The family of this 93-nucleotide sequence from Ornithorhynchus anatinus is "mir-146 microRNA precursor family". Taxonomically the source falls in Ornithorhynchus (Eukaryota, Sarcopterygii, Dipnotetrapodomorpha, Mammalia). It is one of the family's seed sequences.

[Rfam]
RNA sequence: CAGUACGCUCAGCUUUGAGAACUGAAUUCCACGGGUUGUGAUUGCAACUCUGACAGACCCGUGGGGCUCAGUUCUUGAGCUGGGGUACCUCUG
Dot-bracket structure: .......((.(((....((((((((.......((((....................)))).......))))))))...))).)).........